[Rfam]
Nucleotides: 067
Base pairs, nucleotide, nucleotide: 004063005062006061007060008059009058010057011056014054016051018049019048020047021046022045023044024043026041027040028039
Number, partner (000 for none) and nucleotide at each position: 001000g002000g003000g004063a005062u006061a007060a008059c009058u010057u011056c012000a013000a014054a015000u016051a017000u018049a019048a020047g021046c022045a023044u024043u025000c026041a027040u028039g029000a030000u031000u032000u033000u034000u035000g036000u037000g038000u039028c040027a041026u042000a043024a044023g045022u046021g047020c048019u049018u050000c051016u052000c053000u054014u055000u056011g057010g058009g059008g060007u061006u062005g063004u064000c065000u066000u067000g